[Rfam]
RNA sequence: CCCGCGGCAGGACGGAAAGACCCCAUGGAGCUUUACUGUAGCCUGAUAUUGGGUUUUGGCAUGUGCUGCGCAGGAUAGGUGGGAGGCUGAGAAGGUACCCUUUCGGGGGUACUGGAGCCGACGGUGAGAUACCACCCUGCACGUGUUGGAACUCUAACAUGGAGCCGUGAAACCGGCACAUGGACAGUGUCAGGUAGGCAGUUUGACUGGGGCGGUCACCUCCCAAAAGGUAACGGAGGCGUCCAAAGGUACCCUCAGGCGGAAUGGAAACCCGCUGAAGAGUGCAAAGGCAUAAGGGUGCUUGACUGCGAGAGGGACACCUCGAGCAGAGUGGAAACACGGGCUUAGUGACCCGGUGGUGCUGAGUGGAAAGGCCACCGAUCAACGGAUAAAAGUUACCCUGGGGAUAACAGGCUAAUGGGUCCCGAGAGUCCAUAUCGACGGAUCCGUUUGGCACCUCGAUGUCGACCCGUCUCAUCCUGGGGCUGAAGCAGGUCCCAAGGGUUGGGCUGUUCGCCCAUUAAAGAGGCACGCGAGUUGGGUUCAGAGCGUCGUGAGACAGCUCGGUCCUUAUCCGCCGCGGGCGCA
Numbered sequence: 001c002c003c004g005c006g007g008c009a010g011g012a013c014g015g016a017a018a019g020a021c022c023c024c025a026u027g028g029a030g031c032u033u034u035a036c037u038g039u040a041g042c043c044u045g046a047u048a049u050u051g052g053g054u055u056u057u058g059g060c061a062u063g064u065g066c067u068g069c070g071c072a073g074g075a076u077a078g079g080u081g082g083g084a085g086g087c088u089g090a091g092a093a094g095g096u097a098c099c100c101u102u103u104c105g106g107g108g109g110u111a112c113u114g115g116a117g118c119c120g121a122c123g124g125u126g127a128g129a130u131a132c133c134a135c136c137c138u139g140c141a142c143g144u145g146u147u148g149g150a151a152c153u154c155u156a157a158c159a160u161g162g163a164g165c166c167g168u169g170a171a172a173c174c175g176g177c178a179c180a181u182g183g184a185c186a187g188u189g190u191c192a193g194g195u196a197g198g199c200a201g202u203u204u205g206a207c208u209g210g211g212g213c214g215g216u217c218a219c220c221u222c223c224c225a226a227a228a229g230g231u232a233a234c235g236g237a238g239g240c241g242u243c244c245a246a247a248g249g250u251a252c253c254c255u256c257a258g259g260c261g262g263a264a265u266g267g268a269a270a271c272c273c274g275c276u277g278a279a280g281a282g283u284g285c286a287a288a289g290g291c292a293u294a295a296g297g298g299u300g301c302u303u304g305a306c307u308g309c310g311a312g313a314g315g316g317a318c319a320c321c322u323c324g325a326g327c328a329g330a331g332u333g334g335a336a337a338c339a340c341g342g343g344c345u346u347a348g349u350g351a352c353c354c355g356g357u358g359g360u361g362c363u364g365a366g367u368g369g370a371a372a373g374g375c376c377a378c379c380g381a382u383c384a385a386c387g388g389a390u391a392a393a394a395g396u397u398a399c400c401c402u403g404g405g406g407a408u409a410a411c412a413g414g415c416u417a418a419u420g421g422g423u424c425c426c427g428a429g430a431g432u433c434c435a436u437a438u439c440g441a442c443g444g445a446u447c448c449g450u451u452u453g454g455c456a457c458c459u460c461g462a463u464g465u466c467g468a469c470c471c472g473u474c475u476c477a478u479c480c481u482g483g484g485g486c487u488g489a490a491g492c493a494g495g496u497c498c499c500a501a502g503g504g505u506u507g508g509g510c511u512g513u514u515c516g517c518c519c520a521u522u523a524a525a526g527a528g529g530c531a532c533g534c535g536a537g538u539u540g541g542g543u544u545c546a547g548a549g550c551g552u553c554g555u556g557a558g559a560c561a562g563c564u565c566g567g568u569c570c571u572u573a574u575c576c577g578c579c580g581c582g583g584g585c586g587c588a
Stems, first nucleotide, its partner, number of pairs: 001584008010576003014571002022405004027401002029397005035202004042194007051154016068137001078136005085119003094113008158182003162179001164177004205217004219239005241386001243343002249301006255281002258276005282291002306329004312323003331340003354380007362373002414455003418452001419449007429439002466541001467539003471533001472530005479504002482499006506520005547565004551560003

Rfam assigns this 588-nucleotide part of an RNA from Coprothermobacter proteolyticus to the family "Bacterial large subunit ribosomal RNA".
Its family is annotated with structural constituent of ribosome and ribosome in the Gene Ontology.
The source organism's lineage runs through Bacteria, Pseudomonadati, Coprothermobacterota, Coprothermobacterales and Coprothermobacter proteolyticus.
It is one of the family's seed sequences.
Pairs were carried over by alignment from the consensus structure, which is taken from published work.